[Rfam]
RNA sequence: GGGGGUGGAUCGGGCCUGGUGGCCUGCCUGGACUUCAAAUCCAGCCGGCGCGCGGGGUCGUCCCGGGCGCGGUGGGUUCGAUUCCCACACACUCCC
Numbered sequence: 001g002g003g004g005g006u007g008g009a010u011c012g013g014g015c016c017u018g019g020u021g022g023c024c025u026g027c028c029u030g031g032a033c034u035u036c037a038a039a040u041c042c043a044g045c046c047g048g049c050g051c052g053c054g055g056g057g058u059c060g061u062c063c064c065g066g067g068c069g070c071g072g073u074g075g076g077u078u079c080g081a082u083u084c085c086c087a088c089a090c091a092c093u094c095c096c
Base pairs, nucleotide, nucleotide: 001096002095003094004093005092006091007090008088011026012025013024014023015022016021027047028044029043030042031041032040053066073087074086075085076084
Annotation: Shown here is a 96-nucleotide sequence from Thermanaeromonas sp. C210, a member of the family "Selenocysteine transfer RNA". Clan: tRNA clan. Pairs were carried over by alignment from the consensus structure, which is taken from published work.